Rfam assigns this 118-nucleotide RNA sequence from Firmicutes bacterium CAG:227 to the family "FMN riboswitch aptamer (RFN element)". Its family is annotated with FMN binding in the Gene Ontology. Pairs were carried over by alignment from the consensus structure, which is taken from published work. The source organism's lineage runs through Bacteria, Bacillati and Bacillota. It scores 116 bits against the family's covariance model.
[Rfam]
Nucleotides: 118
Stems, first nucleotide, its partner, number of pairs: 005114006017029003031098002033088002035048004043086002052063002068084005090101003
Number, partner (000 for none) and nucleotide at each position: 001000a002000g003000a004000a005114u006113u007112c008111u009110u010109c011000g012000g013000g014000g015000c016000a017029g018028g019027g020000u021000g022000a023000g024000a025000u026000u027019c028018c029017c030000u031098a032097c033088c034087g035048g036047c037046g038045g039000u040000a041000u042000a043086g044085u045038c046037c047036g048035c049000g050000a051000c052063c053062c054000g055000c056000g057000c058000a059000a060000g061000c062053g063052g064000c065000u066000g067000a068084u069083u070082c071081g072080g073000u074000g075000a076000a077000a078000u079000u080072c081071c082070g083069a084068a085044a086043c087034c088033g089000a090101c091100a092099g093000u094000a095000u096000a097032g098031u099092c100091u101090g102000g103000a104000u105000g106000a107000g108000a109010g110009a111008a112007g113006a114005a115000c116000g117000c118000g